[Rfam]
COG3860 RNA: a 58-nucleotide RNA from Amantichitinum ursilacus. A search with the family's covariance model found it, with a score of 63 bits.

RNA sequence: GGGUCUGCAGUUCACCCAGGCGUCGCCGGUCCGUAUUGGAACCACGCUAAACCUGCCA
Numbered sequence: 001g002g003g004u005c006u007g008c009a010g011u012u013c014a015c016c017c018a019g020g021c022g023u024c025g026c027c028g029g030u031c032c033g034u035a036u037u038g039g040a041a042c043c044a045c046g047c048u049a050a051a052c053c054u055g056c057c058a
Stems, first nucleotide, its partner, number of pairs: 001017004029042002032039001
Dot-bracket structure: ((((.........))))...........((.(......).))................